[Rfam]
Nucleotides: 058
Stems, first nucleotide, its partner, number of pairs: 001058007009050005017042003021038007
Number, partner (000 for none) and nucleotide at each position: 001058g002057g003056c004055g005054g006053u007052c008000u009050u010049c011048g012047g013046u014000a015000g016000u017042g018041g019040c020000u021038g022037c023036c024035g025034g026033a027032u028000c029000a030000c031000g032027a033026u034025c035024c036023g037022g038021c039000c040019g041018c042017u043000u044000c045000g046013a047012u048011c049010g050009a051000c052007g053006g054005c055004c056003g057002u058001c
This 58-nucleotide RNA from Mycolicibacterium grossiae belongs to the Rfam family "Actino-pnp RNA". Rfam classes the family as a cis-regulatory element. A search with the family's covariance model found it, with a score of 60 bits.